This 76-nucleotide RNA sequence from Myotis lucifugus belongs to the Rfam family "mir-9229 microRNA precursor family".
RNA sequence: GAGACACCCCUAUGGAGCAGGACUUGUGUUAGUGGGGCUUUGGCGCUCACUGAAUCUGCCCCUUGAGUGUGUCACA
Numbered sequence: 001g002a003g004a005c006a007c008c009c010c011u012a013u014g015g016a017g018c019a020g021g022a023c024u025u026g027u028g029u030u031a032g033u034g035g036g037g038c039u040u041u042g043g044c045g046c047u048c049a050c051u052g053a054a055u056c057u058g059c060c061c062c063u064u065g066a067g068u069g070u071g072u073c074a075c076a
Stems, first nucleotide, its partner, number of pairs: 001075001003073005009067001011065002014062002017059003021056002029053008037044002

Taxonomically the source falls in Myotis (Eukaryota, Chordata, Euteleostomi, Dipnotetrapodomorpha). Pairs were carried over by alignment from the consensus structure, which was predicted with RNAalifold.